The record is an 80-nucleotide sequence from Cricetulus griseus, which matches "mir-350 microRNA precursor family" in Rfam. The source organism's lineage runs through Eukaryota, Amniota, Glires, Rodentia and Cricetulus. Gene Ontology terms of the family: RISC complex and miRNA-mediated post-transcriptional gene silencing.
RNA sequence: UACAAGAGUAAAGUGCAUGCGCUUUGGGACAGUGAGGAAAAUAGUGUUCACAAAGCCCAUACACUUUCACCCUUUAGGAG
Dot-bracket structure: ((.(((.((((((((.....(((((((((((.............))))).)))))).....)))))).)).)))))....
Numbered sequence: 001u002a003c004a005a006g007a008g009u010a011a012a013g014u015g016c017a018u019g020c021g022c023u024u025u026g027g028g029a030c031a032g033u034g035a036g037g038a039a040a041a042u043a044g045u046g047u048u049c050a051c052a053a054a055g056c057c058c059a060u061a062c063a064c065u066u067u068c069a070c071c072c073u074u075u076a077g078g079a080g
Stems, first nucleotide, its partner, number of pairs: 001076002004074003008070002010067006021056006027049005